[Rfam]
RNA sequence: AGGUGUUCUCAGGGCGGGGUGCAAUUCCCCACCGGCGGUAUCGGGACUUGUCCCGGAGCCCGCGAGCGCCUUCCGCCCCCAAAGCGGAAGGGUCAGCAGAUCCGGUGCGAUGCCGGAGCCGACGGUCAUAGUCCGGAUGGAAGAGAGCACGU
Numbered sequence: 001a002g003g004u005g006u007u008c009u010c011a012g013g014g015c016g017g018g019g020u021g022c023a024a025u026u027c028c029c030c031a032c033c034g035g036c037g038g039u040a041u042c043g044g045g046a047c048u049u050g051u052c053c054c055g056g057a058g059c060c061c062g063c064g065a066g067c068g069c070c071u072u073c074c075g076c077c078c079c080c081a082a083a084g085c086g087g088a089a090g091g092g093u094c095a096g097c098a099g100a101u102c103c104g105g106u107g108c109g110a111u112g113c114c115g116g117a118g119c120c121g122a123c124g125g126u127c128a129u130a131g132u133c134c135g136g137a138u139g140g141a142a143g144a145g146a147g148c149a150c151g152u
Stems, first nucleotide, its partner, number of pairs: 003150008017029003031132002033121002035063004058119002066097002101117005123135003
The record is a 152-nucleotide sequence from Arminella tubonensis, which matches "FMN riboswitch aptamer (RFN element)" in Rfam.
Rfam describes the family as follows. The RFN element is a highly conserved domain that is found frequently in the 5'-untranslated regions of prokaryotic mRNAs that encode for flavin mononucleotide (FMN) biosynthesis and transport proteins.
The family's consensus secondary structure is taken from published work.
The source organism's lineage runs through Bacteria, Alphaproteobacteria, Hyphomicrobiales, Rhizobiaceae and Arminella.
It scores 114 bits against the family's covariance model.